[Rfam]
RNA sequence: UCAGUUGGCCAGGCAGCCGCGCCAGACCAAUGCCGAAAGGUGGAUGGUGAGGAAAGUCCGGGCUCCAUGGAAAUACGGUGCCGGGUAAUGCCCGGCGGGGGUGACCCCAGGGAAAGUGCCACAGAAAGGAAACCGCCUAACAAUACAGGUAAGGGUGAAAGGGUAGGGUAAGAGCCUACCGCAUGACCAGUAAUGGUUAUGGCAAGGUAAACCCCACCAGGAGCAAGACCGAAUAGAGAUAGUGUAUAUGACCAGUCUUAUAUUAUAUAAGGCUUUUUUAUACAAGCCCUGUUUCCGGGUUAACUAUCCGGGUAGGUUGCUAGAGACGGAUGGUAACAUCCGUACCAGAUGAAUGGCUGCCACGCAGUUUAUUCUGCCUUACAGAACCCGGCUUAUAGGCCAACUGACCUU
Numbered sequence: 001u002c003a004g005u006u007g008g009c010c011a012g013g014c015a016g017c018c019g020c021g022c023c024a025g026a027c028c029a030a031u032g033c034c035g036a037a038a039g040g041u042g043g044a045u046g047g048u049g050a051g052g053a054a055a056g057u058c059c060g061g062g063c064u065c066c067a068u069g070g071a072a073a074u075a076c077g078g079u080g081c082c083g084g085g086u087a088a089u090g091c092c093c094g095g096c097g098g099g100g101g102u103g104a105c106c107c108c109a110g111g112g113a114a115a116g117u118g119c120c121a122c123a124g125a126a127a128g129g130a131a132a133c134c135g136c137c138u139a140a141c142a143a144u145a146c147a148g149g150u151a152a153g154g155g156u157g158a159a160a161g162g163g164u165a166g167g168g169u170a171a172g173a174g175c176c177u178a179c180c181g182c183a184u185g186a187c188c189a190g191u192a193a194u195g196g197u198u199a200u201g202g203c204a205a206g207g208u209a210a211a212c213c214c215c216a217c218c219a220g221g222a223g224c225a226a227g228a229c230c231g232a233a234u235a236g237a238g239a240u241a242g243u244g245u246a247u248a249u250g251a252c253c254a255g256u257c258u259u260a261u262a263u264u265a266u267a268u269a270a271g272g273c274u275u276u277u278u279u280a281u282a283c284a285a286g287c288c289c290u291g292u293u294u295c296c297g298g299g300u301u302a303a304c305u306a307u308c309c310g311g312g313u314a315g316g317u318u319g320c321u322a323g324a325g326a327c328g329g330a331u332g333g334u335a336a337c338a339u340c341c342g343u344a345c346c347a348g349a350u351g352a353a354u355g356g357c358u359g360c361c362a363c364g365c366a367g368u369u370u371a372u373u374c375u376g377c378c379u380u381a382c383a384g385a386a387c388c389c390g391g392c393u394u395a396u397a398g399g400c401c402a403a404c405u406g407a408c409c410u411u
Stems, first nucleotide, its partner, number of pairs: 001407010011396001012361007020049005027042001054394003058391005063223004072294002077218004081095005096110001097108004111214002116212002118208003133154002135150004162180006181203001182201008227318004238308005286300004326343007
Overview
Rfam assigns this 411-nucleotide sequence from Candidatus Tokpelaia sp. JSC085 to the family "Bacterial RNase P class A". The family's RNA type in Rfam is ribozyme. Rfam describes the family as follows. Ribonuclease P (RNase P) is a ubiquitous endoribonuclease, found in archaea, bacteria and eukarya as well as chloroplasts and mitochondria. Its best characterised activity is the generation of mature 5'-ends of tRNAs by cleaving the 5'-leader elements of precursor-tRNAs. Cellular RNase Ps are ribonucleoproteins. RNA from bacterial RNase Ps retains its catalytic activity in the absence of the protein subunit, i.e. it is a ribozyme. NCBI's taxonomy places the organism under Bacteria, Pseudomonadota, Alphaproteobacteria, Hyphomicrobiales, Candidatus Tokpelaia. Gene Ontology terms of the family: dimeric ribonuclease P complex, ribonuclease P activity and tRNA processing.